[Rfam]
RNA sequence: UGGCAGCGAUGAUGUGGAAGGUUGCUGAUACACCCGGCCCCUUUGCCAUGGCAGGGUGUAGGAAAUUUUCACGGAGUAUGUCUGUUUAUAAAAUGGACGAUAA
Numbered sequence: 001u002g003g004c005a006g007c008g009a010u011g012a013u014g015u016g017g018a019a020g021g022u023u024g025c026u027g028a029u030a031c032a033c034c035c036g037g038c039c040c041c042u043u044u045g046c047c048a049u050g051g052c053a054g055g056g057u058g059u060a061g062g063a064a065a066u067u068u069u070c071a072c073g074g075a076g077u078a079u080g081u082c083u084g085u086u087u088a089u090a091a092a093a094u095g096g097a098c099g100a101u102a103a
Base pairs, nucleotide, nucleotide: 014072015071016070018069019068020067021066025061026060027059079102080101081100082099084098085097086096087095